[Rfam]
Nucleotides: 093
Base pairs, nucleotide, nucleotide: 001093002092003091004090005089006088007087008085011026012025013024014023015022016021028044029043030042031041032040048067049066050065051064052063070084071083072082073081
Number, partner (000 for none) and nucleotide at each position: 001093g002092g003091g004090a005089g006088c007087g008085g009000a010000u011026g012025g013024g014023g015022c016021c017000u018000g019000g020000u021016g022015g023014u024013c025012c026011c027000u028044g029043c030042g031041g032040u033000c034000u035000u036000c037000a038000a039000a040032a041031c042030c043029g044028u045000u046000c047000g048067c049066g050065g051064g052063g053000c054000g055000c056000u057000a058000a059000u060000c061000c062000g063052u064051c065050c066049u067048g068000g069000g070084u071083g072082g073081g074000u075000u076000c077000g078000a079000u080000u081073c082072c083071u084070a085008c086000a087007c088006g089005c090004u091003c092002c093001c
This 93-nucleotide RNA sequence from Methylomusa anaerophila belongs to the Rfam family "Selenocysteine transfer RNA". The literature on the family includes a 2000 paper in FEBS Lett by Mizutani and Goto, "Eukaryotic selenocysteine tRNA has the 9/4 secondary structure". The organism belongs to Methylomusa, within Bacteria. Pairs were carried over by alignment from the consensus structure, which is taken from published work. Rfam links the family to the GO term triplet codon-amino acid adaptor activity.